Shown here is an 87-nucleotide sequence from Gossypium gossypioides, a member of the family "MIR7486 microRNA precursor family".
RNA sequence: UACGUCAGCGCGUUUUGCUGAUGUGUCAACAAAUCGCGUUCACGUAAGCGCGAUUUGUGUCCACGUAAGCAAAGCGCGCUGACGUGG
Numbered sequence: 001u002a003c004g005u006c007a008g009c010g011c012g013u014u015u016u017g018c019u020g021a022u023g024u025g026u027c028a029a030c031a032a033a034u035c036g037c038g039u040u041c042a043c044g045u046a047a048g049c050g051c052g053a054u055u056u057g058u059g060u061c062c063a064c065g066u067a068a069g070c071a072a073a074g075c076g077c078g079c080u081g082a083c084g085u086g087g
Stems, first nucleotide, its partner, number of pairs: 001086019021066001023064003029058010040047001
The base pairs follow the family's consensus structure, which was predicted with RNAalifold.